[Rfam]
RNA sequence: GGUUGCGUAGCUCAGUUGGUAGAGCGCCGGUCUUAUAAGCCGUGAGGUCGCGGGUUCGAGCCCCGCCGCAACCA
Numbered sequence: 001g002g003u004u005g006c007g008u009a010g011c012u013c014a015g016u017u018g019g020u021a022g023a024g025c026g027c028c029g030g031u032c033u034u035a036u037a038a039g040c041c042g043u044g045a046g047g048u049c050g051c052g053g054g055u056u057c058g059a060g061c062c063c064c065g066c067c068g069c070a071a072c073c074a
Stems, first nucleotide, its partner, number of pairs: 001073007010025004027044001028042004050066005
Dot-bracket structure: (((((((..((((........)))).(((((.......)))).).....(((((.......)))))))))))).

The record is a 74-nucleotide RNA sequence from Streptomyces aurantiacus, which matches "tRNA" in Rfam. The organism belongs to Streptomyces, within Bacteria. Gene Ontology term of the family: triplet codon-amino acid adaptor activity. It scores 68 bits against the family's covariance model.